[Rfam]
About this RNA
Shown here is a 220-nucleotide RNA sequence from Paenibacillus aquistagni, a member of the family "c-di-AMP riboswitch aptamer (ydaO/yuaA leader)".
RNA sequence: UCGUCUUGAUCGCUGAGUUCCGUUAUGUUCGGAAGCGGGGGAACCAAUGAUUAUUCAGGCGCUUAAGCAGCUAUGCUUGCGGCCUGAAGACGGGGUGAAUCUGGCCAAGCAGGAAGAGGGAGGGCAAUGUCUGCACUCCAUUCCGUGAAAAAGGCUGGUAGGGCGACUCUUCGAUUCCGAACCCGACAGCUAACCUCGUAAGCGUCCGAGGAGAGGCAUG
Numbered sequence: 001u002c003g004u005c006u007u008g009a010u011c012g013c014u015g016a017g018u019u020c021c022g023u024u025a026u027g028u029u030c031g032g033a034a035g036c037g038g039g040g041g042a043a044c045c046a047a048u049g050a051u052u053a054u055u056c057a058g059g060c061g062c063u064u065a066a067g068c069a070g071c072u073a074u075g076c077u078u079g080c081g082g083c084c085u086g087a088a089g090a091c092g093g094g095g096u097g098a099a100u101c102u103g104g105c106c107a108a109g110c111a112g113g114a115a116g117a118g119g120g121a122g123g124g125c126a127a128u129g130u131c132u133g134c135a136c137u138c139c140a141u142u143c144c145g146u147g148a149a150a151a152a153g154g155c156u157g158g159u160a161g162g163g164c165g166a167c168u169c170u171u172c173g174a175u176u177c178c179g180a181a182c183c184c185g186a187c188a189g190c191u192a193a194c195c196u197c198g199u200a201a202g203c204g205u206c207c208g209a210g211g212a213g214a215g216g217c218a219u220g
Stems, first nucleotide, its partner, number of pairs: 011204004018034005035199006045092001093184003101158006161178003